The record is a 172-nucleotide RNA from Syntrophobacter fumaroxidans, which matches "Group II catalytic intron D1-D4-3" in Rfam.
About the family: Group II introns are found in rRNA, tRNA and mRNA of organelles in fungi, plants and protists, and also in mRNA in bacteria.
Lineage of the source: Bacteria > Thermodesulfobacteriota > Syntrophobacteria > Syntrophobacterales > Syntrophobacter fumaroxidans.
Gene Ontology term of the family: Group II intron splicing.
RNA sequence: UCCAUCGCGAGGUGGAAUCUGAAGGAAGCCGCAGGCAAAGCGCUGGCUCGACGAAUAGGAACCGCAUAUGAGGCGGUCAUGCCGGAUGAGAGGGCCAAUAUCUUCAAAGUCCGAUACCUGUACGGAAGGCGUGGGCGUAAAUGCGGCGGGCAUAAGCGUGAAGGUGGGUGCG
Numbered sequence: 001u002c003c004a005u006c007g008c009g010a011g012g013u014g015g016a017a018u019c020u021g022a023a024g025g026a027a028g029c030c031g032c033a034g035g036c037a038a039a040g041c042g043c044u045g046g047c048u049c050g051a052c053g054a055a056u057a058g059g060a061a062c063c064g065c066a067u068a069u070g071a072g073g074c075g076g077u078c079a080u081g082c083c084g085g086a087u088g089a090g091a092g093g094g095c096c097a098a099u100a101u102c103u104u105c106a107a108a109g110u111c112c113g114a115u116a117c118c119u120g121u122a123c124g125g126a127a128g129g130c131g132u133g134g135g136c137g138u139a140a141a142u143g144c145g146g147c148g149g150g151c152a153u154a155a156g157c158g159u160g161a162a163g164g165u166g167g168g169u170g171c172g
Base pairs, nucleotide, nucleotide: 001016002015003014004013005012006011030170031169032168035165036164040159041158042157043156044155046151047150048149049148050147062146063145064144065143066142067141073138074137075136077134078133079132080131081130082129084112085111086110087109090105091104092103093102